Shown here is a 133-nucleotide RNA sequence from Octodon degus, a member of the family "Small nucleolar RNA SNORA1". From the family's description: ACA1 is a member of the H/ACA class of snoRNA that guide the sites of modification of uridines to pseudouridines. The match comes from Rfam's covariance-model search (114 bits). The base pairs follow the family's consensus structure, which was predicted with PFOLD. Rfam classes the family as an H/ACA-box small nucleolar RNA.
[Rfam]
RNA sequence: AGCCUCAUUCUGGAUUAGAAUGGGUACUGUUGAUUGGUGUCCAGAAUGGGUCAAUGUGGCUAAAAUUGAGACACGGGUCAUGAUUCCACCACAGUAAAUAUUUACAAUGGUGACAAUGAGAAUUGUAACAUUU
Numbered sequence: 001a002g003c004c005u006c007a008u009u010c011u012g013g014a015u016u017a018g019a020a021u022g023g024g025u026a027c028u029g030u031u032g033a034u035u036g037g038u039g040u041c042c043a044g045a046a047u048g049g050g051u052c053a054a055u056g057u058g059g060c061u062a063a064a065a066u067u068g069a070g071a072c073a074c075g076g077g078u079c080a081u082g083a084u085u086c087c088a089c090c091a092c093a094g095u096a097a098a099u100a101u102u103u104a105c106a107a108u109g110g111u112g113a114c115a116a117u118g119a120g121a122a123u124u125g126u127a128a129c130a131u132u133u
Stems, first nucleotide, its partner, number of pairs: 002060003006056003021043007073126004087112005